[Rfam]
RNA sequence: AUCCUUGCUCCAUGUUCGUCGGCGUUGCCGACACAUGCCCUGGCAGCCGAGACCUUCAAGGCUGCAAGUGCGGGAAACCGUGCUGGUCGUUUCUUCCUAUGGACGUACCCCGUCCGUUCACGCCACCCACAAGGGACCUCUCCCUUGCGGGC
Numbered sequence: 001a002u003c004c005u006u007g008c009u010c011c012a013u014g015u016u017c018g019u020c021g022g023c024g025u026u027g028c029c030g031a032c033a034c035a036u037g038c039c040c041u042g043g044c045a046g047c048c049g050a051g052a053c054c055u056u057c058a059a060g061g062c063u064g065c066a067a068g069u070g071c072g073g074g075a076a077a078c079c080g081u082g083c084u085g086g087u088c089g090u091u092u093c094u095u096c097c098u099a100u101g102g103a104c105g106u107a108c109c110c111c112g113u114c115c116g117u118u119c120a121c122g123c124c125a126c127c128c129a130c131a132a133g134g135g136a137c138c139u140c141u142c143c144c145u146u147g148c149g150g151g152c
Stems, first nucleotide, its partner, number of pairs: 011037005018032006043065006051088004067084007122152003130147007

Rfam assigns this 152-nucleotide RNA sequence to the family "radC RNA". Rfam 15.1 lists 500 matches to the family in 142 species.